[Rfam]
RNA: Selenocysteine transfer RNA
RNA sequence: GCCACGAUGAGCUCAGCUGGUGCUGGGUGCGGGCUUCAAACCCGUAGGCGAGUUGGACUCGCAGCCGUUCGAUUCGGCCUUUGUGGUG
Dot-bracket structure: (((((((.(..((((((....))))))((((((.......)))))).(((((.....))))).((((.......))))).))))))).